[Rfam]
Shown here is a 74-nucleotide RNA sequence from Crocodylus porosus, a member of the family "Mammalian CPEB3 ribozyme".
RNA sequence: UGAGUGUUUUAGGCCAUAACAGAAGCGCACAUGACAUGGCCCUGGUAGACUCCAAUGAAUCUGCAAAUUCUGCU
Numbered sequence: 001u002g003a004g005u006g007u008u009u010u011a012g013g014c015c016a017u018a019a020c021a022g023a024a025g026c027g028c029a030c031a032u033g034a035c036a037u038g039g040c041c042c043u044g045g046u047a048g049a050c051u052c053c054a055a056u057g058a059a060u061c062u063g064c065a066a067a068u069u070c071u072g073c074u
Stems, first nucleotide, its partner, number of pairs: 012041004018074001020072005025037001027035001046063004051058002
It scores 37 bits against the family's covariance model.
Lineage of the source: Eukaryota > Deuterostomia > Gnathostomata > Sauria > Crocodylus.